The family of this 85-nucleotide RNA from Thiohalophilus thiocyanatoxydans is "c-di-GMP-I riboswitch aptamer". A search with the family's covariance model found it, with a score of 68 bits.
[Rfam]
RNA sequence: AUGUGACAAGGGAAAACCCGGUGAAAGUCGGGGGCUCAAAACUACAGGUCUACGGAGCGUGCUCUAGGACGGCUGGGUUGCCACA
Dot-bracket structure: ...........((...((((((....))))))...))..((((.((((((....(((....)))...)))..)))))))......
Numbered sequence: 001a002u003g004u005g006a007c008a009a010g011g012g013a014a015a016a017c018c019c020g021g022u023g024a025a026a027g028u029c030g031g032g033g034g035c036u037c038a039a040a041a042c043u044a045c046a047g048g049u050c051u052a053c054g055g056a057g058c059g060u061g062c063u064c065u066a067g068g069a070c071g072g073c074u075g076g077g078u079u080g081c082c083a084c085a
Stems, first nucleotide, its partner, number of pairs: 012037002017032006040079004045075003048070003055064003
Background:
Lineage of the source: Bacteria > Pseudomonadati > Pseudomonadota > Thiohalomonadales > Thiohalophilus.